Actinobacteria sRNA Ms_IGR-5: a 185-nucleotide RNA from Saccharothrix variisporea. Taxonomically the source falls in Saccharothrix (Bacteria, Actinomycetota, Pseudonocardiales, Pseudonocardiaceae). The base pairs follow the family's consensus structure.
RNA sequence: ACACGAGGAAGGAGGUGGUCCGAAGUUGUGUAGCUGUAGGACUCGUCGUGAGGUGACCGUCCGCUAGGACCUACCCGUCUUCAGGGGUGGGCCUGGCGAAAACCAGGCGGCCACCCGGCCCCUCGACCCCGAGCCCAGUCCAGCUCGGCCCGCGCGAGCGGGAGCCGGUCGGGGGGCCGCUCCAC
Dot-bracket structure: .............((((((....................................))))))(((((((.(((((((.......))).))))))))))).................(((((((((((((((((((........))))))..................)))))))))))))......
Numbered sequence: 001a002c003a004c005g006a007g008g009a010a011g012g013a014g015g016u017g018g019u020c021c022g023a024a025g026u027u028g029u030g031u032a033g034c035u036g037u038a039g040g041a042c043u044c045g046u047c048g049u050g051a052g053g054u055g056a057c058c059g060u061c062c063g064c065u066a067g068g069a070c071c072u073a074c075c076c077g078u079c080u081u082c083a084g085g086g087g088u089g090g091g092c093c094u095g096g097c098g099a100a101a102a103c104c105a106g107g108c109g110g111c112c113a114c115c116c117g118g119c120c121c122c123u124c125g126a127c128c129c130c131g132a133g134c135c136c137a138g139u140c141c142a143g144c145u146c147g148g149c150c151c152g153c154g155c156g157a158g159c160g161g162g163a164g165c166c167g168g169u170c171g172g173g174g175g176g177c178c179g180c181u182c183c184a185c
Stems, first nucleotide, its partner, number of pairs: 014061006062098007070091004074086003116179013129148006